[Rfam]
RNA sequence: UGAAAGGGCUUAAGCUGUUUACCUUAUGUAACAGACAUUAAAUUAUUGUUUAAUGUAGAUCGCCAUCAAGAGAUCUCUUAAGCAUAAUUUUUUGUAAAGGAGCAGUUGAGUUUGAAAACUUGGCGCUCCG
Numbered sequence: 001u002g003a004a005a006g007g008g009c010u011u012a013a014g015c016u017g018u019u020u021a022c023c024u025u026a027u028g029u030a031a032c033a034g035a036c037a038u039u040a041a042a043u044u045a046u047u048g049u050u051u052a053a054u055g056u057a058g059a060u061c062g063c064c065a066u067c068a069a070g071a072g073a074u075c076u077c078u079u080a081a082g083c084a085u086a087a088u089u090u091u092u093u094g095u096a097a098a099g100g101a102g103c104a105g106u107u108g109a110g111u112u113u114g115a116a117a118a119c120u121u122g123g124c125g126c127u128c129c130g
Base pairs, nucleotide, nucleotide: 008083009082010081011080012079016033017032018031019030035056036055037054038053039052040051041050042049043048057076058075059074060073061072100128101127102126103125105124106123107122108121109120110119111118112117
RNA: U11 spliceosomal RNA
Organism: Trichinella pseudospiralis